Shown here is a 364-nucleotide RNA from Buchnera aphidicola, a member of the family "Bacterial RNase P class A". The family's consensus secondary structure is taken from published work.
RNA sequence: AAAGUUAACCAGACAGUCGCUGCUAUUUCAAAAAUAGGAGAGGAAAGUCCGGACUCCGCAGGGCAAAUACAAGGUGCCAGAUAACAUCUGGGGAGCAUAAGCUUACGACCAGUGCAACAGAAAAUAACCGCUUCUUCACGAAUAAGUUCAGAAGCAAGGAUGAAAAGGCGAGGUAAGAGCUCACCGCAUACUGGGUAACUAGUAUGGCUAAGUAAACUCCACCUGGAGCAAGGCCAAAUAGAGAAUUAAUAUAUUUUUGCCCUUAUACAUAAUACUCGGGUAGGCUGCUUGAAAUAAUAAGUAAUUAUUAUUCUAGAUAAAUGACUGUCUAAUACAGAAUCCGGCUUAUAGGUUAACUUUUAUU
Numbered sequence: 001a002a003a004g005u006u007a008a009c010c011a012g013a014c015a016g017u018c019g020c021u022g023c024u025a026u027u028u029c030a031a032a033a034a035u036a037g038g039a040g041a042g043g044a045a046a047g048u049c050c051g052g053a054c055u056c057c058g059c060a061g062g063g064c065a066a067a068u069a070c071a072a073g074g075u076g077c078c079a080g081a082u083a084a085c086a087u088c089u090g091g092g093g094a095g096c097a098u099a100a101g102c103u104u105a106c107g108a109c110c111a112g113u114g115c116a117a118c119a120g121a122a123a124a125u126a127a128c129c130g131c132u133u134c135u136u137c138a139c140g141a142a143u144a145a146g147u148u149c150a151g152a153a154g155c156a157a158g159g160a161u162g163a164a165a166a167g168g169c170g171a172g173g174u175a176a177g178a179g180c181u182c183a184c185c186g187c188a189u190a191c192u193g194g195g196u197a198a199c200u201a202g203u204a205u206g207g208c209u210a211a212g213u214a215a216a217c218u219c220c221a222c223c224u225g226g227a228g229c230a231a232g233g234c235c236a237a238a239u240a241g242a243g244a245a246u247u248a249a250u251a252u253a254u255u256u257u258u259g260c261c262c263u264u265a266u267a268c269a270u271a272a273u274a275c276u277c278g279g280g281u282a283g284g285c286u287g288c289u290u291g292a293a294a295u296a297a298u299a300a301g302u303a304a305u306u307a308u309u310a311u312u313c314u315a316g317a318u319a320a321a322u323g324a325c326u327g328u329c330u331a332a333u334a335c336a337g338a339a340u341c342c343g344g345c346u347u348a349u350a351g352g353u354u355a356a357c358u359u360u361u362a363u364u
Stems, first nucleotide, its partner, number of pairs: 001360010011349001012329007020040002023037006045347003049344005054228004070259001072224005077091005092106001093104004107219002112217002114213002128159002130155006138147001167185002170182003186208001187206008232286004242276002245273003255267001257265001293312008
It is annotated as a ribozyme. Rfam's curators write: Ribonuclease P (RNase P) is a ubiquitous endoribonuclease, found in archaea, bacteria and eukarya as well as chloroplasts and mitochondria. Its best characterised activity is the generation of mature 5'-ends of tRNAs by cleaving the 5'-leader elements of precursor-tRNAs. Cellular RNase Ps are ribonucleoproteins. RNA from bacterial RNase Ps retains its catalytic activity in the absence of the protein subunit, i.e. it is a ribozyme. Isolated eukaryotic and archaeal RNase P RNA has not been shown to retain its catalytic function, but is still essential for the catalytic activity of the holoenzyme. Although the archaeal and eukaryotic holoenzyme s have a much greater protein content than the bacterial ones, the RNA cores from all the three lineages are homologous -- helices corresponding to P1, P2, P3, P4, and P10/11 are common to all cellular RNase P RNAs. Yet, there is considerable sequence variation, particularly among the eukaryotic RNAs. Identified in Yersinia as Ysr151/RnpB.